About this RNA
The record is a 199-nucleotide RNA sequence from Chengkuizengella marina, which matches "glmS glucosamine-6-phosphate activated ribozyme aptamer" in Rfam.
[Rfam]
RNA sequence: CUUGUUUUAAAAGCGCCAGAACUUGAUAACUUUAUAAAUUUUUGUUUCAUAUUCAUAACUUACAUAAGGUUAUAAGUUGACGAGGUGGAAGGUGUUCGAAUAUUCGGCGGGGACCUCCCGGUAUAUUACAUCCAUACCGUAAAAUUGGAAAGUAAAUGAAUUGGGUGACCGAUUUGACAAGGUUCCAAUUAGGAUGAUU
Numbered sequence: 001c002u003u004g005u006u007u008u009a010a011a012a013g014c015g016c017c018a019g020a021a022c023u024u025g026a027u028a029a030c031u032u033u034a035u036a037a038a039u040u041u042u043u044g045u046u047u048c049a050u051a052u053u054c055a056u057a058a059c060u061u062a063c064a065u066a067a068g069g070u071u072a073u074a075a076g077u078u079g080a081c082g083a084g085g086u087g088g089a090a091g092g093u094g095u096u097c098g099a100a101u102a103u104u105c106g107g108c109g110g111g112g113a114c115c116u117c118c119c120g121g122u123a124u125a126u127u128a129c130a131u132c133c134a135u136a137c138c139g140u141a142a143a144a145u146u147g148g149a150a151a152g153u154a155a156a157u158g159a160a161u162u163g164g165g166u167g168a169c170c171g172a173u174u175u176g177a178c179a180a181g182g183u184u185c186c187a188a189u190u191a192g193g194a195u196g197a198u199u
Stems, first nucleotide, its partner, number of pairs: 020078005026073003030069006087118003091114001096107004119139006144189007158175007
Dot-bracket structure: ...................(((((.(((.((((((............................)))))).))))))))........(((.(....((((....))))......).)))((((((.........))))))....(((((((.......(((((((....))))))).......)))))))..........

By type it is a riboswitch.